drz-agam-1 ribozyme: a 79-nucleotide RNA from Hermetia illucens. For this family Rfam cites "Widespread occurrence of self-cleaving ribozymes" (Webb et al., Science, 2009). Pairs were carried over by alignment from the consensus structure, which is taken from published work. The family has 7 seed sequences and 10,507 matches in Rfam 15.1. A search with the family's covariance model found it, with a score of 42 bits. The source organism's lineage runs through Eukaryota, Metazoa, Eumetazoa, Dicondylia and Hermetia.
[Rfam]
RNA sequence: UACUACCAAACCCUAUUUCCACCUCCACGUGGUGAUCGCUGGGAGUUCUUUCUUAAUAGAAAACUUCAGACAGGGAAGG
Numbered sequence: 001u002a003c004u005a006c007c008a009a010a011c012c013c014u015a016u017u018u019c020c021a022c023c024u025c026c027a028c029g030u031g032g033u034g035a036u037c038g039c040u041g042g043g044a045g046u047u048c049u050u051u052c053u054u055a056a057u058a059g060a061a062a063a064c065u066u067c068a069g070a071c072a073g074g075g076a077a078g079g
Stems, first nucleotide, its partner, number of pairs: 012079003016075003021033003044066002047063001049061003053058001